RNA sequence: GCAGCUGUAACCGUAAGGGGAAAGCAAAGCAAUUUGCGCAGCCUUUAAGGGAUGUUAUCCAUGUUACGAGAAAUUCAAUAUAUAAGAGCUCUCGUCUGUUGCAAGAUAUAAGUUGCUGAGCAUGUUAUGUUGGAAAGAUAACAUGCUGGAGUAAUAAUGAAUUGCGGAACGCCUUAGGCUGGAAACAGAGCAGGGUUAGCAAUCGCUUGUAUACGGUGCAAAGUUUGCGAUGAGCGAUUAGUAUAUCUCGAAU
Number, nucleotide and partner (000 for none) at each position: 001g000002c000003a000004g000005c000006u000007g000008u000009a000010a000011c018012c017013g000014u000015a000016a000017g012018g011019g000020g000021a000022a000023a000024g000025c000026a000027a000028a000029g000030c000031a000032a000033u000034u000035u000036g000037c000038g000039c000040a000041g000042c000043c000044u000045u000046u000047a000048a000049g000050g000051g000052a000053u000054g000055u000056u000057a000058u000059c000060c000061a000062u000063g253064u252065u251066a000067c250068g249069a248070g247071a246072a000073a244074u000075u000076c000077a000078a000079u000080a000081u000082a000083u000084a000085a000086g000087a000088g235089c234090u233091c232092u230093c229094g228095u227096c223097u222098g000099u221100u220101g219102c218103a217104a000105g000106a212107u211108a210109u209110a208111a207112g206113u205114u151115g000116c149117u000118g000119a147120g146121c145122a144123u143124g142125u141126u140127a139128u138129g000130u137131u136132g000133g000134a000135a000136a131137g130138a128139u127140a126141a125142c124143a123144u122145g121146c120147u119148g000149g116150a000151g114152u000153a000154a000155u159156a000157a000158u000159g155160a000161a203162u202163u201164g200165c199166g000167g000168a000169a000170c000171g196172c195173c194174u193175u000176a000177g000178g000179c188180u187181g186182g000183a000184a000185a000186c181187a180188g179189a000190g000191c000192a000193g174194g173195g172196u171197u000198a000199g165200c164201a163202a162203u161204c000205g113206c112207u111208u110209g109210u108211a107212u106213a000214c000215g000216g000217u103218g102219c101220a100221a099222a097223g096224u000225u000226u000227g095228c094229g093230a092231u000232g091233a090234g089235c088236g000237a000238u000239u000240a000241g000242u000243a000244u073245a000246u071247c070248u069249c068250g067251a065252a064253u063

Rfam assigns this 253-nucleotide RNA from Plasmodium yoelii to the family "Protozoan signal recognition particle RNA". A reference for the family is Wild et al. (2002), "Towards the structure of the mammalian signal recognition particle", Curr Opin Struct Biol.